RNA: Mason-Pfizer monkey virus packaging signal
Organism: Jaculus jaculus
RNA sequence: UGGUGCCCAAACUUGGGGCUUGAGGUAUGAAAUGUGACUUGGAUGUUGCUGAAGUGGACGUCCAUCACCCCCAUUGGAUCGCCACCUCAUCAGUGAGUGAAGAUCUGCAUGCAAAUCACCACAGGAGGGCCCACCUGUGAUACAGAUCCUGAGUGGUAAGAGAAGUGACACAAUUAUGGGACAAGCAUCAAGUAAGCACUAAUUGUUUGUUGAAGGGCUUAAAAACUUAUCUCAAGACACGAGGAACAUGGGUUUAAAAAAAAGAUUUAGUGAAAUUCUUUGUCUUUCCAGAAGAUGUCUGUCCCU
Numbered sequence: 001u002g003g004u005g006c007c008c009a010a011a012c013u014u015g016g017g018g019c020u021u022g023a024g025g026u027a028u029g030a031a032a033u034g035u036g037a038c039u040u041g042g043a044u045g046u047u048g049c050u051g052a053a054g055u056g057g058a059c060g061u062c063c064a065u066c067a068c069c070c071c072c073a074u075u076g077g078a079u080c081g082c083c084a085c086c087u088c089a090u091c092a093g094u095g096a097g098u099g100a101a102g103a104u105c106u107g108c109a110u111g112c113a114a115a116u117c118a119c120c121a122c123a124g125g126a127g128g129g130c131c132c133a134c135c136u137g138u139g140a141u142a143c144a145g146a147u148c149c150u151g152a153g154u155g156g157u158a159a160g161a162g163a164a165g166u167g168a169c170a171c172a173a174u175u176a177u178g179g180g181a182c183a184a185g186c187a188u189c190a191a192g193u194a195a196g197c198a199c200u201a202a203u204u205g206u207u208u209g210u211u212g213a214a215g216g217g218c219u220u221a222a223a224a225a226c227u228u229a230u231c232u233c234a235a236g237a238c239a240c241g242a243g244g245a246a247c248a249u250g251g252g253u254u255u256a257a258a259a260a261a262a263a264g265a266u267u268u269a270g271u272g273a274a275a276u277u278c279u280u281u282g283u284c285u286u287u288c289c290a291g292a293a294g295a296u297g298u299c300u301g302u303c304c305c306u
Stems, first nucleotide, its partner, number of pairs: 006036001008034001013030003042069001105156002110152001116146002120139005165182002169180001171178002190232001194227001240282007250268006291306001294303003